[Rfam]
A member of the RNA family "Small nucleolar RNA snoR8a", 83 nucleotides long. Rfam classes the family as a C/D-box small nucleolar RNA.

Nucleotides: 083
Base pairs, nucleotide, nucleotide: 003083004082006081007080
Number, partner (000 for none) and nucleotide at each position: 001000u002000u003083u004082a005000c006081u007080g008000a009000a010000u011000u012000a013000a014000a015000c016000g017000u018000a019000u020000c021000a022000g023000a024000g025000a026000a027000c028000u029000g030000a031000a032000u033000g034000c035000c036000a037000u038000u039000g040000c041000c042000a043000u044000g045000g046000c047000a048000u049000g050000a051000c052000a053000g054000a055000c056000a057000c058000g059000a060000a061000u062000a063000c064000a065000c066000u067000c068000a069000u070000a071000g072000a073000a074000u075000a076000u077000g078000a079000g080007c081006a082004u083003a